[Rfam]
This 136-nucleotide sequence from Drosophila rhopaloa belongs to the Rfam family "Small nucleolar RNA psi28S-3316". NCBI's taxonomy places the organism under Eukaryota, Hexapoda, Pterygota, Drosophilidae, Sophophora. By type it is an H/ACA-box small nucleolar RNA.

RNA sequence: UGCACCUAAAAGCGUUUUCUUGCCAGCUCGUUAAAUGCUCUCGAAAAUCGUAGAUGUGUGCGAGAGCAAUCCUCACAAUUGCAAGUGAAAUUAGUUUUUAAAAAAUAACUUUGUUCCAUUUUCAUUGUGAACAUCC
Numbered sequence: 001u002g003c004a005c006c007u008a009a010a011a012g013c014g015u016u017u018u019c020u021u022g023c024c025a026g027c028u029c030g031u032u033a034a035a036u037g038c039u040c041u042c043g044a045a046a047a048u049c050g051u052a053g054a055u056g057u058g059u060g061c062g063a064g065a066g067c068a069a070u071c072c073u074c075a076c077a078a079u080u081g082c083a084a085g086u087g088a089a090a091u092u093a094g095u096u097u098u099u100a101a102a103a104a105a106u107a108a109c110u111u112u113g114u115u116c117c118a119u120u121u122u123c124a125u126u127g128u129g130a131a132c133a134u135c136c
Stems, first nucleotide, its partner, number of pairs: 001062005006056001012051003015047005022038002025036001073130007083121005088115002093110004

Rfam's curators write: psi28S-3316 is a member of the H/ACA class of snoRNA. This family is responsible for guiding the modification of uridine 3316 in Drosophila 28S rRNA to pseudouridine. The family's consensus secondary structure was predicted with RNAfold.